A member of the RNA family "tRNA" from Ideonella aquatica, 73 nucleotides long. Transfer RNA (tRNA) molecules are approximately 80 nucleotides in length. Pairs were carried over by alignment from the consensus structure, which is taken from published work.
RNA sequence: GCGCCCGUAGCUCAAUGGAUAGAGUACUGGCCUCCGAAGCCAGGGGUUGCUGGUUCGAUCCCAGCCGGGCGCG
Numbered sequence: 001g002c003g004c005c006c007g008u009a010g011c012u013c014a015a016u017g018g019a020u021a022g023a024g025u026a027c028u029g030g031c032c033u034c035c036g037a038a039g040c041c042a043g044g045g046g047u048u049g050c051u052g053g054u055u056c057g058a059u060c061c062c063a064g065c066c067g068g069g070c071g072c073g
Stems, first nucleotide, its partner, number of pairs: 001072007010025004027043005049065005